[Rfam]
RNA sequence: UAAUAAACUUGUUAGGUGAGGCUCCUAGAAGAACAUAGGCUACUGCCCAAAAAUGUCGAGAGACGCCAAUGGGUAGAACAGGCAUGAUCGGAUUAAGGUCUGCUUAAGGUAGCUGAUUUAAUUUCAAUUAAAUCUACGUCUUCUAGUGCCAAAGCUAAGACGAGGAGUAGGUUA
Numbered sequence: 001u002a003a004u005a006a007a008c009u010u011g012u013u014a015g016g017u018g019a020g021g022c023u024c025c026u027a028g029a030a031g032a033a034c035a036u037a038g039g040c041u042a043c044u045g046c047c048c049a050a051a052a053a054u055g056u057c058g059a060g061a062g063a064c065g066c067c068a069a070u071g072g073g074u075a076g077a078a079c080a081g082g083c084a085u086g087a088u089c090g091g092a093u094u095a096a097g098g099u100c101u102g103c104u105u106a107a108g109g110u111a112g113c114u115g116a117u118u119u120a121a122u123u124u125c126a127a128u129u130a131a132a133u134c135u136a137c138g139u140c141u142u143c144u145a146g147u148g149c150c151a152a153a154g155c156u157a158a159g160a161c162g163a164g165g166a167g168u169a170g171g172u173u174a
Stems, first nucleotide, its partner, number of pairs: 007168004011161002013096001015156003020150003025146008039113005045074005054065004081104004087099003115134006
M-box riboswitch aptamer (ykoK leader): a 174-nucleotide RNA from Anaerobranca californiensis.
The match comes from Rfam's covariance-model search (150 bits).
From the family's description: M-box riboswitch, also know as ykoK leader is described as a metaloregulatory RNA that sense divalent metals and function as a genetic control element of genes related to divalent metal transport in bacteria.
Gene Ontology terms of the family: response to magnesium ion and regulation of gene expression.
The literature on the family includes a 2011 paper in J Mol Biol by Ramesh et al., "Insights into metalloregulation by M-box riboswitch RNAs via structural analysis of manganese-bound complexes".